RNA sequence: UGGGAGGCUGAUACACAGCUAGGGCUAAAGCAGCUCUAAUUGUCACACUGCUCUCCCUAUAGUAAAAUUGCUUUCUGAUGACCGGGACGAACUGAGGGAAAUCGUAACGGACAGAUACGGAGCACACAAUA
Numbered sequence: 001u002g003g004g005a006g007g008c009u010g011a012u013a014c015a016c017a018g019c020u021a022g023g024g025c026u027a028a029a030g031c032a033g034c035u036c037u038a039a040u041u042g043u044c045a046c047a048c049u050g051c052u053c054u055c056c057c058u059a060u061a062g063u064a065a066a067a068u069u070g071c072u073u074u075c076u077g078a079u080g081a082c083c084g085g086g087a088c089g090a091a092c093u094g095a096g097g098g099a100a101a102u103c104g105u106a107a108c109g110g111a112c113a114g115a116u117a118c119g120g121a122g123c124a125c126a127c128a129a130u131a
Base pairs, nucleotide, nucleotide: 002057003056004055005054006053007052015043016042017041018040022036023035024034025033069124070123071122072121073120074119082110083109084108087105088104089103090102
RNA: Small Cajal body specific RNA 8